RNA: Small nucleolar RNA R30/Z108
Organism: Ricinus communis
RNA sequence: AGGGUUUGCUAUGAGGAUUCACAGCUCCCUCUUCUGAGUUAAUGAAGAGAUUAGCUGGCAGAAUCGAACCUAUAACUUUGCUUUUGCCGCUACUGAGUAA
Numbered sequence: 001a002g003g004g005u006u007u008g009c010u011a012u013g014a015g016g017a018u019u020c021a022c023a024g025c026u027c028c029c030u031c032u033u034c035u036g037a038g039u040u041a042a043u044g045a046a047g048a049g050a051u052u053a054g055c056u057g058g059c060a061g062a063a064u065c066g067a068a069c070c071u072a073u074a075a076c077u078u079u080g081c082u083u084u085u086g087c088c089g090c091u092a093c094u095g096a097g098u099a100a
Stems, first nucleotide, its partner, number of pairs: 006100004